[Rfam]
RNA sequence: UAGACAGAUUAUUGUAUUCAACUGUAUUCGACUAUAUUCACGGCGUGAAACAGGGGAUUACAUUGUGUUUUAAAUAUAAAGUGAAUCAAUUAACAUAAUAAACUCCU
Numbered sequence: 001u002a003g004a005c006a007g008a009u010u011a012u013u014g015u016a017u018u019c020a021a022c023u024g025u026a027u028u029c030g031a032c033u034a035u036a037u038u039c040a041c042g043g044c045g046u047g048a049a050a051c052a053g054g055g056g057a058u059u060a061c062a063u064u065g066u067g068u069u070u071u072a073a074a075u076a077u078a079a080a081g082u083g084a085a086u087c088a089a090u091u092a093a094c095a096u097a098a099u100a101a102a103c104u105c106c107u
Base pairs, nucleotide, nucleotide: 003105004104009101010100011099012098013097014096015095017093018092020091021090023088024087036086037085038084039083040082041081045075046074047069048068050066051065052064053063